Rfam assigns this 345-nucleotide RNA sequence from Entomospira culicis to the family "Bacterial RNase P class A".
RNA sequence: UAGGUAGAUUCAGGCUGUCGCUCGUAAAGAGAGGAAAGUCCGGGCUUCAUAGGGGAGAGCGCAGGCUAACGACCUGACGCGGUAGCAAUACUGCGAUGGAAAGUGCCACAGAAAAGAUACCGCCGAUACUUUAUGGUGUGGGUAAGGGUGAAAAGGUGAGGUAAGAGCUCACCGCACCACUGGCGACAGGGGUGGCAGGGAAAACCCCGCUCGAAGCAAGCCCAAAUAGCAAGGAGAUGCCCCGUCUAUAACCUUGCGGGUAGGGUGCAAAGAGGUUGCUAGUAAUAGUAGUCGAAGAUAGAUGACAGCGCGAAACAGAACCCGGCUUAUGGGUCUACCUUUUUU
Numbered sequence: 001u002a003g004g005u006a007g008a009u010u011c012a013g014g015c016u017g018u019c020g021c022u023c024g025u026a027a028a029g030a031g032a033g034g035a036a037a038g039u040c041c042g043g044g045c046u047u048c049a050u051a052g053g054g055g056a057g058a059g060c061g062c063a064g065g066c067u068a069a070c071g072a073c074c075u076g077a078c079g080c081g082g083u084a085g086c087a088a089u090a091c092u093g094c095g096a097u098g099g100a101a102a103g104u105g106c107c108a109c110a111g112a113a114a115a116g117a118u119a120c121c122g123c124c125g126a127u128a129c130u131u132u133a134u135g136g137u138g139u140g141g142g143u144a145a146g147g148g149u150g151a152a153a154a155g156g157u158g159a160g161g162u163a164a165g166a167g168c169u170c171a172c173c174g175c176a177c178c179a180c181u182g183g184c185g186a187c188a189g190g191g192g193u194g195g196c197a198g199g200g201a202a203a204a205c206c207c208c209g210c211u212c213g214a215a216g217c218a219a220g221c222c223c224a225a226a227u228a229g230c231a232a233g234g235a236g237a238u239g240c241c242c243c244g245u246c247u248a249u250a251a252c253c254u255u256g257c258g259g260g261u262a263g264g265g266u267g268c269a270a271a272g273a274g275g276u277u278g279c280u281a282g283u284a285a286u287a288g289u290a291g292u293c294g295a296a297g298a299u300a301g302a303u304g305a306c307a308g309c310g311c312g313a314a315a316c317a318g319a320a321c322c323c324g325g326c327u328u329a330u331g332g333g334u335c336u337a338c339c340u341u342u343u344u345u
Stems, first nucleotide, its partner, number of pairs: 002340008011332001012330001014309006021031003036328003040325005045216004052243004057212005062076004077097001078095007098207002103205002106200002120147002122143003126139005155173006174196001175194004180189003220266004229257006238244001274293008

Rfam describes the family as follows. Ribonuclease P (RNase P) is a ubiquitous endoribonuclease, found in archaea, bacteria and eukarya as well as chloroplasts and mitochondria. It is annotated as a ribozyme. It scores 268 bits against the family's covariance model.